[Rfam]
RNA sequence: GAAGUAAGCCGGGCAAUCGCCGGUGCGAGCCGCGAGGCUGCACGGGAGGAAAGUCCGAGCUCCACAGGGCAGGGUGCCGGAUAACGUCCGGCGAGAGCGAUCUCAGGGAAAGUGCCACAGAAAUGCAGACCGCCGAUGGCUCAUACGAGCACAGGCAAGGGUGCAACGGUGCGGUAAGAGCGCACCAGCAGUCCGGAGACGGGCUGGCUAGGUAAACCCCACCCGGAGCAAGACCAAGUAGGGGCGCAGAUGCGGUGGCCCGCCGCGCGCCCGGGUUGGUCGCUGGAGCCGGCUGGCAACAGUCGGCCUAGAUAGAUGAUUGCCACUCCACAUGUGCGAGGCGUCACGCCGCUUGCAGCACAGGAGGACAGAACUCGGCUUACAGGCUUGCUUCUUCG
Dot-bracket structure: ((((((((((((((((((.((.(((((...........))))).))....[[[.[[[[[((((...[[[[.((((((((((.....)))))(((((....)))).)((...(((((.............(((((..((((((....)))).)))))..)).......((((((.......)))))).((((((((....))))))).)..)))..)))))))))))))...((((......((((((....(((((.]]]]))))))))))).....))))......((((((((....))))))))..........))))))).................................................]]]]]]]].).))))))))))....
RNA: Bacterial RNase P class A